This 305-nucleotide sequence from Carnegiea gigantea belongs to the Rfam family "Plant signal recognition particle RNA".
The family's RNA type in Rfam is non-coding RNA gene.
A search with the family's covariance model found it, with a score of 194 bits.
Lineage of the source: Eukaryota > Streptophytina > Tracheophyta > eudicotyledons > Carnegiea.

RNA sequence: GCUGAGCUGGGUGGCGUCAGCUUGUAACUUGAGUGAGGGCAUUGAGGUGAUGGGAUCUGACCCACUUACACAGGGCAGGAGCACAGACUGCAGUUUACUGGCUUGCCCGUUCCAAGCUGAGAGUUGGGCUGUGUGGGCUAGACGAAAGUCUGGCCCGAACAGUCCCUAAAGAGGAAAGCAGUGCGUUAGACUGGUUUUACAGAGUAGCGAACACCUCCUGCCUUGGGCAGUGGAAGGAUAACAAGCGGGAGCACCCUUGGUCCAUCAGCACCCUGUGGGCUGAGCUCACUUGGACCAUGACCUUU
Numbered sequence: 001g002c003u004g005a006g007c008u009g010g011g012u013g014g015c016g017u018c019a020g021c022u023u024g025u026a027a028c029u030u031g032a033g034u035g036a037g038g039g040c041a042u043u044g045a046g047g048u049g050a051u052g053g054g055a056u057c058u059g060a061c062c063c064a065c066u067u068a069c070a071c072a073g074g075g076c077a078g079g080a081g082c083a084c085a086g087a088c089u090g091c092a093g094u095u096u097a098c099u100g101g102c103u104u105g106c107c108c109g110u111u112c113c114a115a116g117c118u119g120a121g122a123g124u125u126g127g128g129c130u131g132u133g134u135g136g137g138c139u140a141g142a143c144g145a146a147a148g149u150c151u152g153g154c155c156c157g158a159a160c161a162g163u164c165c166c167u168a169a170a171g172a173g174g175a176a177a178g179c180a181g182u183g184c185g186u187u188a189g190a191c192u193g194g195u196u197u198u199a200c201a202g203a204g205u206a207g208c209g210a211a212c213a214c215c216u217c218c219u220g221c222c223u224u225g226g227g228c229a230g231u232g233g234a235a236g237g238a239u240a241a242c243a244a245g246c247g248g249g250a251g252c253a254c255c256c257u258u259g260g261u262c263c264a265u266c267a268g269c270a271c272c273c274u275g276u277g278g279g280c281u282g283a284g285c286u287c288a289c290u291u292g293g294a295c296c297a298u299g300a301c302c303u304u305u
Base pairs, nucleotide, nucleotide: 001040002039003038004023005022006021007020008019009018010017028037029036030035044304045303046302047301048300050298051297052296053295056292058288059287060286061284063282064281066279069277070276071275072274073273074272075271078263079262080261082259083258086255089253090252098249099248101246102245103244104243105242107237108236110235111234112233113232114231116228117227118226120224121223123221124220126165127164128163129162130161131160132159134157135156136155137154138153139152140151141150142149143148166171172219173218174217175216182211184209185208186207191202192201193200